[Rfam]
RNA sequence: AAACCCUUUAACAUAGUCCAGAGAGGCUAAGAAGGCGCACGAAUAAAAGGCUUGAAAGGUUUCUUUCAUGCUGUUUUCAUGUACCUCGCCUCUUUUAGGCGAGGUUUUUUGCUA
Numbered sequence: 001a002a003a004c005c006c007u008u009u010a011a012c013a014u015a016g017u018c019c020a021g022a023g024a025g026g027c028u029a030a031g032a033a034g035g036c037g038c039a040c041g042a043a044u045a046a047a048a049g050g051c052u053u054g055a056a057a058g059g060u061u062u063c064u065u066u067c068a069u070g071c072u073g074u075u076u077u078c079a080u081g082u083a084c085c086u087c088g089c090c091u092c093u094u095u096u097a098g099g100c101g102a103g104g105u106u107u108u109u110u111g112c113u114a
Base pairs, nucleotide, nucleotide: 005035006034007033008032009031014029015028016027017026018025045076046075047074049072050071051070053068054067055066056065057064058063079109081107083105084104085103086102087101088100089099090098091097
Dot-bracket structure: ....(((((....(((((......))))).))))).........(((.(((.((((((....)))))).))).)))..(.(.(((((((((.....))))))))).).).....
The record is a 114-nucleotide RNA sequence from Streptococcus hyointestinalis, which matches "PyrR binding site" in Rfam. It is annotated as a cis-regulatory element. The organism belongs to Streptococcus, within Bacteria. The match comes from Rfam's covariance-model search (69 bits). Rfam's curators write: This family represents the PyrR binding site and terminator structure. This RNA structure is found upstream of a variety of genes involved in pyrimidine biosynthesis and transport. The alignment also includes a portion of the antiterminator structure. The family's consensus secondary structure is taken from published work.